Rfam assigns this 46-nucleotide RNA from Oryzias javanicus to the family "Histone 3' UTR stem-loop".
RNA sequence: CCAAAGGCUCUUUUAAGAGCCACACACUUGACCUUAAGAGAAACAU
Numbered sequence: 001c002c003a004a005a006g007g008c009u010c011u012u013u014u015a016a017g018a019g020c021c022a023c024a025c026a027c028u029u030g031a032c033c034u035u036a037a038g039a040g041a042a043a044c045a046u
Stems, first nucleotide, its partner, number of pairs: 006021006